[Rfam]
RNA sequence: GGGCAUUCUCAGGGCGGGGUGCAAUUCCCCACCGGCGGUAUAGCCCGCGAGCGCCCUUCCUUUGGUUGGGGUCAGCAGAUCCGGUGAAACUCCGGGGCCGACGGUAUAGUCCGGAUGAAAGAGAAUGCGC
Numbered sequence: 001g002g003g004c005a006u007u008c009u010c011a012g013g014g015c016g017g018g019g020u021g022c023a024a025u026u027c028c029c030c031a032c033c034g035g036c037g038g039u040a041u042a043g044c045c046c047g048c049g050a051g052c053g054c055c056c057u058u059c060c061u062u063u064g065g066u067u068g069g070g071g072u073c074a075g076c077a078g079a080u081c082c083g084g085u086g087a088a089a090c091u092c093c094g095g096g097g098c099c100g101a102c103g104g105u106a107u108a109g110u111c112c113g114g115a116u117g118a119a120a121g122a123g124a125a126u127g128c129g130c
Base pairs, nucleotide, nucleotide: 003128004127005126006125007124008123009122010121017029018028019027031110032109033100034099035048036047037046038045043098044097051076052075080096081095082094083093084092102113103112104111

This 130-nucleotide RNA from Pseudorhodobacter sp. PARRP1 belongs to the Rfam family "FMN riboswitch aptamer (RFN element)". Lineage of the source: Bacteria > Pseudomonadati > Pseudomonadota > Alphaproteobacteria > Pseudorhodobacter. The base pairs follow the family's consensus structure, which is taken from published work.